[Rfam]
RNA sequence: GAAUCAAUAUCGGGGUGCUUAGGCUGAGAAAUACCCGCAAAAACCUGAUCUGGAUAAUCCCAGCGUAGGAAAUAUUGAAUCUUAAGGA
Numbered sequence: 001g002a003a004u005c006a007a008u009a010u011c012g013g014g015g016u017g018c019u020u021a022g023g024c025u026g027a028g029a030a031a032u033a034c035c036c037g038c039a040a041a042a043a044c045c046u047g048a049u050c051u052g053g054a055u056a057a058u059c060c061c062a063g064c065g066u067a068g069g070a071a072a073u074a075u076u077g078a079a080u081c082u083u084a085a086g087g088a
Stems, first nucleotide, its partner, number of pairs: 006076005011037004016031001017024002044069004050063004